[Rfam]
RNA sequence: UGGUAGAUGCACCCUGAAUGAGACGCUUGAGUUCCCGAAUCGGAGCUCGGGCGUUUUUUU
Numbered sequence: 001u002g003g004u005a006g007a008u009g010c011a012c013c014c015u016g017a018a019u020g021a022g023a024c025g026c027u028u029g030a031g032u033u034c035c036c037g038a039a040u041c042g043g044a045g046c047u048c049g050g051g052c053g054u055u056u057u058u059u060u
Base pairs, nucleotide, nucleotide: 002013003012004011025052026051027050028049029048030047031046032045033044034043035042
RNA: Nitrogen stress-induced RNA 1